[Rfam]
RNA: Listeria sRNA rli38
RNA sequence: AUUGAGUGGGAGUAAGAAUACAACUUAAUUUGAAGAGGGAACACCGAUUUAUAAGGGUUUAACCUUGUUAAAAAUGGUCAAAUACCAUAUAAAAUAAUAUGGUUCCCUGCCAAAAACCCUACCAAGAAAAAAUUUUGGUAGGGAAUUUUGC
Numbered sequence: 001a002u003u004g005a006g007u008g009g010g011a012g013u014a015a016g017a018a019u020a021c022a023a024c025u026u027a028a029u030u031u032g033a034a035g036a037g038g039g040a041a042c043a044c045c046g047a048u049u050u051a052u053a054a055g056g057g058u059u060u061a062a063c064c065u066u067g068u069u070a071a072a073a074a075u076g077g078u079c080a081a082a083u084a085c086c087a088u089a090u091a092a093a094a095u096a097a098u099a100u101g102g103u104u105c106c107c108u109g110c111c112a113a114a115a116a117c118c119c120u121a122c123c124a125a126g127a128a129a130a131a132a133u134u135u136u137g138g139u140a141g142g143g144a145a146u147u148u149u150g151c
Base pairs, nucleotide, nucleotide: 008107009106010105011104012103049092050091051090052089053088055086057085058084060082114147115146117143118142119141120140121139122138123137124136125135126134